The record is a 60-nucleotide RNA sequence from Ruminiclostridium cellobioparum, which matches "Fluoride riboswitch aptamer (crcB RNA motif)" in Rfam. The source organism's lineage runs through Bacteria, Bacillota, Eubacteriales, Ruminiclostridium and Ruminiclostridium cellobioparum subsp. termitidis. The family's consensus secondary structure is taken from published work.

RNA sequence: AUAAAUUCAGGUGAUGGAGUUCACCUUUAAAUGCAUUGAGCUAAUGACUCCUACUUUAAU
Numbered sequence: 001a002u003a004a005a006u007u008c009a010g011g012u013g014a015u016g017g018a019g020u021u022c023a024c025c026u027u028u029a030a031a032u033g034c035a036u037u038g039a040g041c042u043a044a045u046g047a048c049u050c051c052u053a054c055u056u057u058a059a060u
Stems, first nucleotide, its partner, number of pairs: 010025004016051006033041002